The record is a 374-nucleotide sequence from Allosphingosinicella ginsenosidimutans, which matches "Bacterial RNase P class A" in Rfam. It is annotated as a ribozyme. Ribonuclease P (RNase P) is a ubiquitous endoribonuclease, found in archaea, bacteria and eukarya as well as chloroplasts and mitochondria.

RNA sequence: CCAGAAGGCCGGGCGGCCGCGGCUCCCGUGAGGGAGUCGAGGAAAGUCCGGGCUCCACGGAACGGCGGUGCCGGGUAACGCCCGGCGAUCCCGGUCACGGCCGGGAUCAGGGACAGUGCCACAGAAAGCAGACCACCGGAUUUCGAUCCGGCCAGGGCGAAAGGGUGGGGCAAGAGCCCACCGCGGACCCGGCAACGGGGACGGCAUGGCAAACCCCACCGGGAGCAAGACCGAAUAGGGGCGGCACACGGGCCACGUUCCGGCUCGUCGCCCGGGUUGGUUGCUAGAGCGGCGGAGCGAUCCGUCGCCCAGAGGAAUGGUCGCCCAGUCCCGCAAGGGACGGACAGAACCCGGCUUACAGGCCUUCUGGCAGA
Numbered sequence: 001c002c003a004g005a006a007g008g009c010c011g012g013g014c015g016g017c018c019g020c021g022g023c024u025c026c027c028g029u030g031a032g033g034g035a036g037u038c039g040a041g042g043a044a045a046g047u048c049c050g051g052g053c054u055c056c057a058c059g060g061a062a063c064g065g066c067g068g069u070g071c072c073g074g075g076u077a078a079c080g081c082c083c084g085g086c087g088a089u090c091c092c093g094g095u096c097a098c099g100g101c102c103g104g105g106a107u108c109a110g111g112g113a114c115a116g117u118g119c120c121a122c123a124g125a126a127a128g129c130a131g132a133c134c135a136c137c138g139g140a141u142u143u144c145g146a147u148c149c150g151g152c153c154a155g156g157g158c159g160a161a162a163g164g165g166u167g168g169g170g171c172a173a174g175a176g177c178c179c180a181c182c183g184c185g186g187a188c189c190c191g192g193c194a195a196c197g198g199g200g201a202c203g204g205c206a207u208g209g210c211a212a213a214c215c216c217c218a219c220c221g222g223g224a225g226c227a228a229g230a231c232c233g234a235a236u237a238g239g240g241g242c243g244g245c246a247c248a249c250g251g252g253c254c255a256c257g258u259u260c261c262g263g264c265u266c267g268u269c270g271c272c273c274g275g276g277u278u279g280g281u282u283g284c285u286a287g288a289g290c291g292g293c294g295g296a297g298c299g300a301u302c303c304g305u306c307g308c309c310c311a312g313a314g315g316a317a318u319g320g321u322c323g324c325c326c327a328g329u330c331c332c333g334c335a336a337g338g339g340a341c342g343g344a345c346a347g348a349a350c351c352c353g354g355c356u357u358a359c360a361g362g363c364c365u366u367c368u369g370g371c372a373g374a
Stems, first nucleotide, its partner, number of pairs: 001370010011359001012325007020039008044357003048354005053225004060260004066221005071085005086110001087108009111216002116214002118210003133156002136151006164182006183205001184203002188199004229282004239273006250266005289308008